[Rfam]
Fluoride riboswitch aptamer (crcB RNA motif): a 65-nucleotide RNA sequence from Chromobacterium violaceum.
RNA sequence: UUCUAUUGCGGAGAUGGCAUUCCUCCCGUAACCACCCCUAGAGGGUUGAUGAUGCCUACGGUAUU
Numbered sequence: 001u002u003c004u005a006u007u008g009c010g011g012a013g014a015u016g017g018c019a020u021u022c023c024u025c026c027c028g029u030a031a032c033c034a035c036c037c038c039u040a041g042a043g044g045g046u047u048g049a050u051g052a053u054g055c056c057u058a059c060g061g062u063a064u065u
Stems, first nucleotide, its partner, number of pairs: 010026004016056006034046004